[Rfam]
About this RNA:
This 101-nucleotide RNA from Firmicutes bacterium CAG:194 belongs to the Rfam family "Glycine riboswitch aptamer".

RNA sequence: GGUAACCACUCUGGAGAGUCUCUCUUCCAUUCUGGGAAGAGAGCGCCGAAGGUGUACGGCUUACAGCCAAUCUCUCAGGCAUAAAGGACAGAGCAUUACAU
Numbered sequence: 001g002g003u004a005a006c007c008a009c010u011c012u013g014g015a016g017a018g019u020c021u022c023u024c025u026u027c028c029a030u031u032c033u034g035g036g037a038a039g040a041g042a043g044c045g046c047c048g049a050a051g052g053u054g055u056a057c058g059g060c061u062u063a064c065a066g067c068c069a070a071u072c073u074c075u076c077a078g079g080c081a082u083a084a085a086g087g088a089c090a091g092a093g094c095a096u097u098a099c100a101u
Base pairs, nucleotide, nucleotide: 009093010092011091012090013089020043021042022041023040024039025038026037045080046079047078048076049075052074054072058068059067

The source organism's lineage runs through Bacteria, Bacillati and Bacillota.